[Rfam]
RNA sequence: GUUGGAAGCAGCCUCCCAUGAUGAUCCUUCUCUGUCUGAUGGCUGUGGUGGUGAUGAACCUCAAACCAAAGCCUCUAAGAAGUUGACUGAAGAGGCUGCUCCUCU
Numbered sequence: 001g002u003u004g005g006a007a008g009c010a011g012c013c014u015c016c017c018a019u020g021a022u023g024a025u026c027c028u029u030c031u032c033u034g035u036c037u038g039a040u041g042g043c044u045g046u047g048g049u050g051g052u053g054a055u056g057a058a059c060c061u062c063a064a065a066c067c068a069a070a071g072c073c074u075c076u077a078a079g080a081a082g083u084u085g086a087c088u089g090a091a092g093a094g095g096c097u098g099c100u101c102c103u104c105u
Stems, first nucleotide, its partner, number of pairs: 007100009

Background: Shown here is a 105-nucleotide RNA from Dryobates pubescens, a member of the family "Small nucleolar RNA SNORD125". Rfam links the family to the GO terms nucleolus and RNA processing. The source organism's lineage runs through Eukaryota, Archelosauria, Archosauria, Telluraves and Dryobates. A reference for the family is Yang et al. (2006), "snoSeeker: an advanced computational package for screening of guide and orphan snoRNA genes in the human genome", Nucleic Acids Res. The match comes from Rfam's covariance-model search (76 bits). By type it is a C/D-box small nucleolar RNA. The base pairs follow the family's consensus structure, which was predicted with WAR.